[Rfam]
A member of the RNA family "DUF3800-III RNA", 117 nucleotides long.
By type it is a small RNA.
The family's consensus secondary structure is taken from published work.

RNA sequence: GAACGGGACUCGUAAGACCUGGAUUGGGCUGCUCCGAUGUAAGUCGGUGAUACUCCGGUAGCCAAGGAUCUUCCUUGGCGAGCACGGUGAGAAUCGGCCCCCAGGGUGAGCCCGUUU
Numbered sequence: 001g002a003a004c005g006g007g008a009c010u011c012g013u014a015a016g017a018c019c020u021g022g023a024u025u026g027g028g029c030u031g032c033u034c035c036g037a038u039g040u041a042a043g044u045c046g047g048u049g050a051u052a053c054u055c056c057g058g059u060a061g062c063c064a065a066g067g068a069u070c071u072u073c074c075u076u077g078g079c080g081a082g083c084a085c086g087g088u089g090a091g092a093a094u095c096g097g098c099c100c101c102c103a104g105g106g107u108g109a110g111c112c113c114g115u116u117u
Base pairs, nucleotide, nucleotide: 001117002116003115004114005113006112007111009110010109011108012107018105019104020103021102022101027099028098029097034047035046036045037044038043061079062078063077064076065075066074067073